[Rfam]
Background:
pan motif: an 83-nucleotide RNA sequence from Bacillus sp. 165. Pairs were carried over by alignment from the consensus structure, which is taken from published work. Taxonomically the source falls in Bacillus (Bacteria, Bacillota, Caryophanales, Bacillaceae). It scores 67 bits against the family's covariance model.
RNA sequence: UGGGUAGUAUCCAAAAUGGAACUGCACCAAACGGAAUUAAAAACUUGGAUUCUGCCUUGAUCCAAUAGGACUAGGACAGAGGG
Dot-bracket structure: ((((((((.((.......))))))).)))......................((((((.(.(((....)))).))).)))....